[Rfam]
RNA sequence: CGACGCCUCUGGAAAGCGGUGGUGACACACCCGCCGAUGGGGAAAGGCGCCGGGCACUAGGCGGCACCGAAUCUCUCAGGCGCCCGGCGAACGGGUGAAGACAGAGGGAGAG
Numbered sequence: 001c002g003a004c005g006c007c008u009c010u011g012g013a014a015a016g017c018g019g020u021g022g023u024g025a026c027a028c029a030c031c032c033g034c035c036g037a038u039g040g041g042g043a044a045a046g047g048c049g050c051c052g053g054g055c056a057c058u059a060g061g062c063g064g065c066a067c068c069g070a071a072u073c074u075c076u077c078a079g080g081c082g083c084c085c086g087g088c089g090a091a092c093g094g095g096u097g098a099a100g101a102c103a104g105a106g107g108g109a110g111a112g
Stems, first nucleotide, its partner, number of pairs: 006107006018031004033081003036077002040075003046068002
Dot-bracket structure: .....((((((......((((......)))).(((((..(((...((...................))....))))).)))....................)))))).....
This 112-nucleotide RNA sequence from Mycobacterium saskatchewanense belongs to the Rfam family "Glycine riboswitch aptamer". The pairing is the family consensus, mapped onto this sequence. This family represents the bacterial glycine riboswitch. The match comes from Rfam's covariance-model search (42 bits).